[Rfam]
RNA sequence: GACAAAUUUCUAUAUGCUUUUCGUAUAAUUCCGGGAAUUGGCCCGGAAGUUUCUACGAGGUCACCGUAAAUGAUCUGGCUACGAAAAGAAGAGGCGCACCG
Numbered sequence: 001g002a003c004a005a006a007u008u009u010c011u012a013u014a015u016g017c018u019u020u021u022c023g024u025a026u027a028a029u030u031c032c033g034g035g036a037a038u039u040g041g042c043c044c045g046g047a048a049g050u051u052u053c054u055a056c057g058a059g060g061u062c063a064c065c066g067u068a069a070a071u072g073a074u075c076u077g078g079c080u081a082c083g084a085a086a087a088g089a090a091g092a093g094g095c096g097c098a099c100c101g
Stems, first nucleotide, its partner, number of pairs: 018087008029048007058076006
RNA: Purine riboswitch aptamer
Organism: Paenibacillus lutimineralis